The record is a 165-nucleotide RNA sequence from Microbispora sp. ATCC PTA-5024, which matches "c-di-AMP riboswitch aptamer (ydaO/yuaA leader)" in Rfam. Rfam links the family to the GO terms regulation of gene expression and cyclic-di-AMP binding.
RNA sequence: CGCGGUGACCUGCCGAGUCCGUGCAGUCAGGAGGCACGGAGCCGGGGAACCACUCGACCUUCCGGUGUGGAGGGUCACGGGGUGAAUCGGCGCGUUCCAGCGCCGUAGGGCGACUUCCCCGCCCGAAUCCGUCAGCUAACCCGGUAGGCGCAAGCGGAAGAACCG
Number, nucleotide and partner (000 for none) at each position: 001c000002g000003c000004g000005g000006u000007g000008a000009c000010c000011u150012g149013c148014c147015g000016a000017g000018u040019c039020c038021g037022u036023g035024c034025a000026g000027u000028c000029a000030g000031g000032a000033g000034g024035c023036a022037c021038g020039g019040a018041g145042c144043c143044g142045g141046g140047g000048a000049a000050c000051c079052a000053c000054u000055c000056g000057a000058c000059c000060u000061u000062c000063c000064g000065g000066u000067g000068u000069g000070g000071a000072g000073g000074g000075u000076c000077a000078c000079g051080g130081g129082g128083u000084g000085a000086a000087u000088c105089g104090g103091c102092g000093c000094g000095u000096u000097c000098c000099a000100g000101c000102g091103c090104c089105g088106u000107a000108g124109g123110g122111c121112g000113a000114c000115u000116u000117c000118c000119c000120c000121g111122c110123c109124c108125g000126a000127a000128u082129c081130c080131g000132u000133c000134a000135g000136c000137u000138a000139a000140c046141c045142c044143g043144g042145u041146a000147g014148g013149c012150g011151c000152a000153a000154g000155c000156g000157g000158a000159a000160g000161a000162a000163c000164c000165g000
Notes
From the family's description: This family represents a conserved RNA structure found upstream of the ydaO and yuaA genes in Bacillus subtilis and related genes in other bacteria. The organism belongs to Microbispora, within Bacteria.